[Rfam]
RNA sequence: AUUCUUACCAGGCAGGGGAGAUGCCAUGAUCAUGAAGGUGGUUCUUCCAGGGUGAGGCUCAUCCAUUGCACUCCGUAGGUGUGCUUCCCACUGUGAUUUCCCCAAAUGCGGGAAACUCGACUGCAUAAUUUGUGGUAGUGAGGAACUGUAUUCGUGCUUUCCUCUG
Numbered sequence: 001a002u003u004c005u006u007a008c009c010a011g012g013c014a015g016g017g018g019a020g021a022u023g024c025c026a027u028g029a030u031c032a033u034g035a036a037g038g039u040g041g042u043u044c045u046u047c048c049a050g051g052g053u054g055a056g057g058c059u060c061a062u063c064c065a066u067u068g069c070a071c072u073c074c075g076u077a078g079g080u081g082u083g084c085u086u087c088c089c090a091c092u093g094u095g096a097u098u099u100c101c102c103c104a105a106a107u108g109c110g111g112g113a114a115a116c117u118c119g120a121c122u123g124c125a126u127a128a129u130u131u132g133u134g135g136u137a138g139u140g141a142g143g144a145a146c147u148g149u150a151u152u153c154g155u156g157c158u159u160u161c162c163u164c165u166g
Stems, first nucleotide, its partner, number of pairs: 012124004016048006023042005049092002052089001054088001056085003060081003064075001094119003097115003101111002140164004145160001148157003

The family of this 166-nucleotide sequence from Nomascus leucogenys is "U1 spliceosomal RNA".
Rfam describes the family as follows. U1 is a small nuclear RNA (snRNA) component of the spliceosome (involved in pre-mRNA splicing). Its 5' end forms complementary base pairs with the 5' splice junction, thus defining the 5' donor site of an intron. There are significant differences in sequence and secondary structure between metazoan and yeast U1 snRNAs, the latter being much longer (568 nucleotides as compared to 164 nucleotides in human). Nevertheless, secondary structure predictions suggest that all U1 snRNAs share a 'common core' consisting of helices I, II, the proximal region of III, and IV. This family does not contain the larger yeast sequences.
The source organism's lineage runs through Eukaryota, Bilateria, Eutheria, Hylobatidae and Nomascus.